[Rfam]
The record is an 84-nucleotide RNA sequence from Halalkalibacter wakoensis, which matches "c-di-GMP-I riboswitch aptamer" in Rfam.
About the family: GEMM was predicted in a large-scale screen for bacterial structured RNA regulatory elements. Genes associated with GEMM are involved in a diverse array of functions, including chemotaxis regulation, signal transduction, secretion and chitin.
The family's consensus secondary structure is taken from published work.
RNA sequence: UUACGAGAAUAGCAAACUUGUCGAAAGAGAAGGACGCAAAGCCACGGACCUAAGGGAAAGAACUACGGCAGCCGGGUUACCGAA
Numbered sequence: 001u002u003a004c005g006a007g008a009a010u011a012g013c014a015a016a017c018u019u020g021u022c023g024a025a026a027g028a029g030a031a032g033g034a035c036g037c038a039a040a041g042c043c044a045c046g047g048a049c050c051u052a053a054g055g056g057a058a059a060g061a062a063c064u065a066c067g068g069c070a071g072c073c074g075g076g077u078u079a080c081c082g083a084a
Base pairs, nucleotide, nucleotide: 012037013036017032018031019030021028022027040078041077042076043075045074046073047072049068050067055063